[Rfam]
A member of the RNA family "Small nucleolar RNA SNORD121A" from Podarcis muralis, 83 nucleotides long. A reference for the family is Yang et al. (2006), "snoSeeker: an advanced computational package for screening of guide and orphan snoRNA genes in the human genome", Nucleic Acids Res. Pairs were carried over by alignment from the consensus structure, which was predicted with WAR. Lineage of the source: Eukaryota > Metazoa > Squamata > Episquamata > Podarcis. The family has 26 seed sequences and 881 matches in Rfam 15.1. A search with the family's covariance model found it, with a score of 67 bits.
RNA sequence: GGCUGGAGGACUGUGAUGCAUUCUUUCCAAGCACAUAUCUGACUGCUGCAUGUGGAAAUGAAAACUUUCUGAGUCUUCUAGCU
Dot-bracket structure: ((((((.((((.............................................................)))).))))))